[Rfam]
Rfam assigns this 46-nucleotide RNA from Enhydra lutris to the family "Histone 3' UTR stem-loop".
A search with the family's covariance model found it, with a score of 40 bits.
RNA sequence: UCAAAGGCUCUUUUAAGAGCCACCCACUCUGUCAAAUAAAAGGGUU
Numbered sequence: 001u002c003a004a005a006g007g008c009u010c011u012u013u014u015a016a017g018a019g020c021c022a023c024c025c026a027c028u029c030u031g032u033c034a035a036a037u038a039a040a041a042g043g044g045u046u
Base pairs, nucleotide, nucleotide: 006021007020008019009018010017011016
The base pairs follow the family's consensus structure, which is taken from published work.